Annotation
The family of this 61-nucleotide RNA sequence from Streptomyces albiflaviniger is "Streptomyces RNA 2736". The literature on the family includes a 2011 paper in RNA Biol by Vockenhuber et al., "Deep sequencing-based identification of small non-coding RNAs in Streptomyces coelicolor".

RNA sequence: CGCCCGGCCGGAUCCCGUGGGGGGAAUCCGCUCCGGGGCAAGGGAAGCGCCCCGCUCCGAC
Numbered sequence: 001c002g003c004c005c006g007g008c009c010g011g012a013u014c015c016c017g018u019g020g021g022g023g024g025a026a027u028c029c030g031c032u033c034c035g036g037g038g039c040a041a042g043g044g045a046a047g048c049g050c051c052c053c054g055c056u057c058c059g060a061c
Stems, first nucleotide, its partner, number of pairs: 002061001003037005009030005014024003042052003

Rfam classes the family as a small RNA. Rfam's curators write: Identified by deep sequencing of transcriptome at the end of exponential growth phase. Appears smaller on northern blot than sequencing transcript. This indicates processing step. Streptomyces specific.